[Rfam]
RNA sequence: CCAAAGGCUCUUUUAAGAGCCACCCAUUCUUUCAGUAAAAAAGCUG
Numbered sequence: 001c002c003a004a005a006g007g008c009u010c011u012u013u014u015a016a017g018a019g020c021c022a023c024c025c026a027u028u029c030u031u032u033c034a035g036u037a038a039a040a041a042a043g044c045u046g
Stems, first nucleotide, its partner, number of pairs: 006021006
RNA: Histone 3' UTR stem-loop